[Rfam]
RNA sequence: GUAGAUGCUCAUUCCACCUCUUAUGUCUGCUGAUGCUGCAUAAAUCUGGGAAUGAUGCAGAGCCAAUUUUAGGUACCUGUUGUCUGCCUGCCUGUAUCGCGUAAGCCUUACAGGAUUACCAGACACCACGUUGAGUCGGGUACCUCCCGGUUGUCUUACCGACCUGAUCUUACACCUGCCACUGGCAGGUGUUUUUUU
Numbered sequence: 001g002u003a004g005a006u007g008c009u010c011a012u013u014c015c016a017c018c019u020c021u022u023a024u025g026u027c028u029g030c031u032g033a034u035g036c037u038g039c040a041u042a043a044a045u046c047u048g049g050g051a052a053u054g055a056u057g058c059a060g061a062g063c064c065a066a067u068u069u070u071a072g073g074u075a076c077c078u079g080u081u082g083u084c085u086g087c088c089u090g091c092c093u094g095u096a097u098c099g100c101g102u103a104a105g106c107c108u109u110a111c112a113g114g115a116u117u118a119c120c121a122g123a124c125a126c127c128a129c130g131u132u133g134a135g136u137c138g139g140g141u142a143c144c145u146c147c148c149g150g151u152u153g154u155c156u157u158a159c160c161g162a163c164c165u166g167a168u169c170u171u172a173c174a175c176c177u178g179c180c181a182c183u184g185g186c187a188g189g190u191g192u193u194u195u196u197u198u
Stems, first nucleotide, its partner, number of pairs: 001063002006059003009055004015050001017049001019042001022038001027035001072144007082124005093112004153163003172192009

Source information: This 198-nucleotide RNA from Pantoea sp. M_5 belongs to the Rfam family "GlmZ RNA activator of glmS mRNA". The match comes from Rfam's covariance-model search (137 bits). A reference for the family is Argaman et al. (2001), "Novel small RNA-encoding genes in the intergenic regions of Escherichia coli", Curr Biol. The family's consensus secondary structure is taken from published work. From the family's description: This RNA was discovered in E. coli during a large scale screen.